[Rfam]
Small nucleolar RNA SNORD66: a 90-nucleotide RNA from Sus scrofa. Rfam's curators write: snoRNA HBII-142 is part of the C/D family of snoRNAs. It is the human orthologue of the mouse MBII-142 snoRNA and is predicted to guide 2'O-ribose methylation of small 18S rRNA at residue C1272.
RNA sequence: UUCCUGUGAUGAUUCAUUGUAUGUGUCAGCUUGGCAGGGCCACAGAUAUGUGGCCGAACUUAUGAUUGUUAUUUUGGCUGCUGCUGGGAA
Numbered sequence: 001u002u003c004c005u006g007u008g009a010u011g012a013u014u015c016a017u018u019g020u021a022u023g024u025g026u027c028a029g030c031u032u033g034g035c036a037g038g039g040c041c042a043c044a045g046a047u048a049u050g051u052g053g054c055c056g057a058a059c060u061u062a063u064g065a066u067u068g069u070u071a072u073u074u075u076g077g078c079u080g081c082u083g084c085u086g087g088g089a090a
Base pairs, nucleotide, nucleotide: 001090002089003088004087005086006085